[Rfam]
RNA sequence: GAUCAAACUUAAGGACGUGGUGGCCUGUCAGUAACUACUGAAUCGGAAUGCUGCUCACGCAGAAUCCAUAUUCACUGCGCGACGGGCCG
Numbered sequence: 001g002a003u004c005a006a007a008c009u010u011a012a013g014g015a016c017g018u019g020g021u022g023g024c025c026u027g028u029c030a031g032u033a034a035c036u037a038c039u040g041a042a043u044c045g046g047a048a049u050g051c052u053g054c055u056c057a058c059g060c061a062g063a064a065u066c067c068a069u070a071u072u073c074a075c076u077g078c079g080c081g082a083c084g085g086g087c088c089g
Stems, first nucleotide, its partner, number of pairs: 022088008039074005045067003051062004
Dot-bracket structure: .....................((((((((.........(((((.(((...((((....))))..)))..)))))......)))))))).